Shown here is a 158-nucleotide RNA from Actinidia chinensis, a member of the family "small nucleolar RNA snoR137". The family's RNA type in Rfam is H/ACA-box small nucleolar RNA. Rfam 15.1 lists 808 matches to the family in 221 species.
[Rfam]
RNA sequence: GUUGCUUCUUACUGGUGAACUCUCUCUGAUUUUGAAAGUGGGGGAUGUUCAUGUUUCCGAAGCAUAGAUCAAUUGCUUAGAUUUGCCAGCUUCAAACAGCUCGGUGCAUUACACGAAUGUGUUCUGUUGCAUCGCGCUACCUGUCUCCUGGUACAUUU
Numbered sequence: 001g002u003u004g005c006u007u008c009u010u011a012c013u014g015g016u017g018a019a020c021u022c023u024c025u026c027u028g029a030u031u032u033u034g035a036a037a038g039u040g041g042g043g044g045a046u047g048u049u050c051a052u053g054u055u056u057c058c059g060a061a062g063c064a065u066a067g068a069u070c071a072a073u074u075g076c077u078u079a080g081a082u083u084u085g086c087c088a089g090c091u092u093c094a095a096a097c098a099g100c101u102c103g104g105u106g107c108a109u110u111a112c113a114c115g116a117a118u119g120u121g122u123u124c125u126g127u128u129g130c131a132u133c134g135c136g137c138u139a140c141c142u143g144u145c146u147c148c149u150g151g152u153a154c155a156u157u158u
Base pairs, nucleotide, nucleotide: 003064004063005062006061007060008059016051017050018049019048020047021045022044023043024042025041085152086151087150088149089148098138099137100136102134103133104132105131106130107129108128